[Rfam]
RNA sequence: AAACAUUGUGUUGUUUAUGAAAUCUGUGAUAACUCUUUAGGUAUUCCUUCGAACAAGAAGCCAGAAAGCAUACAAAUGAAAGCCCUUCUACGAGUGAUUAGCCUGGUCGUGAUUAGCGUGGUGGUGAUUAUUAUCCCACCGUGCGGGGCUGCACUUGGACGAGGAAAGGCUUAAGAAUCAAGCCUUAACGAACUAAGACCCCCGCACCGAAAGGUCCGGGGGUUUUUUUUGACCUUAAAAACAGAAGAGAGGAGCAGAUAAUGGUUAGUAGCAUAAAAUUCUGUUUCUCGCGAUCUAC
Numbered sequence: 001a002a003a004c005a006u007u008g009u010g011u012u013g014u015u016u017a018u019g020a021a022a023u024c025u026g027u028g029a030u031a032a033c034u035c036u037u038u039a040g041g042u043a044u045u046c047c048u049u050c051g052a053a054c055a056a057g058a059a060g061c062c063a064g065a066a067a068g069c070a071u072a073c074a075a076a077u078g079a080a081a082g083c084c085c086u087u088c089u090a091c092g093a094g095u096g097a098u099u100a101g102c103c104u105g106g107u108c109g110u111g112a113u114u115a116g117c118g119u120g121g122u123g124g125u126g127a128u129u130a131u132u133a134u135c136c137c138a139c140c141g142u143g144c145g146g147g148g149c150u151g152c153a154c155u156u157g158g159a160c161g162a163g164g165a166a167a168g169g170c171u172u173a174a175g176a177a178u179c180a181a182g183c184c185u186u187a188a189c190g191a192a193c194u195a196a197g198a199c200c201c202c203c204g205c206a207c208c209g210a211a212a213g214g215u216c217c218g219g220g221g222g223u224u225u226u227u228u229u230u231g232a233c234c235u236u237a238a239a240a241a242c243a244g245a246a247g248a249g250a251g252g253a254g255c256a257g258a259u260a261a262u263g264g265u266u267a268g269u270a271g272c273a274u275a276a277a278a279u280u281c282u283g284u285u286u287c288u289c290g291c292g293a294u295c296u297a298c
Base pairs, nucleotide, nucleotide: 006032007031008030009029012026013024015022016021038072039071041069042068044066045065047064048063049059084252085251086250088247089246092242098238099237100236101234104231105230106229108118109117110116120140121139122138123137124136126135127134128133141160142159144157145156146155147154163189168185169184171182172181195226196225197224198223199222200221201220202219203218204217206215207214208213253285254284255283256282257281258280261274262273263272
RNA: Soft rot Enterobacteriaceae Rev 39 5'UTR
Organism: Klebsiella sp. RIT-PI-d